Record summary:
The record is a 51-nucleotide RNA sequence, which matches "Mu-gpT-DE RNA" in Rfam.
RNA sequence: CCCUGACAAACACACGGUGUGUUUGACUAACCCAGACAGGAGAUCGACAUG
Numbered sequence: 001c002c003c004u005g006a007c008a009a010a011c012a013c014a015c016g017g018u019g020u021g022u023u024u025g026a027c028u029a030a031c032c033c034a035g036a037c038a039g040g041a042g043a044u045c046g047a048c049a050u051g
Stems, first nucleotide, its partner, number of pairs: 002040004007025005
Pairs were carried over by alignment from the consensus structure, which is taken from published work.